Shown here is an 83-nucleotide RNA sequence from Coffea canephora, a member of the family "Small nucleolar RNA snoR53Y". The family's RNA type in Rfam is C/D-box small nucleolar RNA. It scores 54 bits against the family's covariance model. On this family, see Brown et al., RNA 2001: "Multiple snoRNA gene clusters from Arabidopsis". The source organism's lineage runs through Eukaryota, Streptophytina, Euphyllophyta, Mesangiospermae and Coffea.
RNA sequence: GUUCCCUGUGAUGCUUCAGUUGUAACCAUGCUAAUUCUGAUCAAAUGAAGAUUGGAACCAUUUAUGAUAAUAUCUGAGGGACA
Dot-bracket structure: ((.((((.....................................................................)))))).

Annotation
Clan: snoR53 clan.